A member of the RNA family "Small nucleolar RNA SNORD116" from Dipodomys ordii, 96 nucleotides long. A search with the family's covariance model found it, with a score of 90 bits. Gene Ontology terms of the family: nucleolus and RNA processing. Rfam classes the family as a C/D-box small nucleolar RNA.
[Rfam]
RNA sequence: GGAUCGAUGAUGAUUCCCCAAAAAAACAUUCCUUGGAAAAGCUGAACAAAAUGAGUGAAAAUUUAUGCCCUUCUCACUCAUCGGUGACUGAGGUCC
Numbered sequence: 001g002g003a004u005c006g007a008u009g010a011u012g013a014u015u016c017c018c019c020a021a022a023a024a025a026a027c028a029u030u031c032c033u034u035g036g037a038a039a040a041g042c043u044g045a046a047c048a049a050a051a052u053g054a055g056u057g058a059a060a061a062u063u064u065a066u067g068c069c070c071u072u073c074u075c076a077c078u079c080a081u082c083g084g085u086g087a088c089u090g091a092g093g094u095c096c
Stems, first nucleotide, its partner, number of pairs: 001096005027057005033049003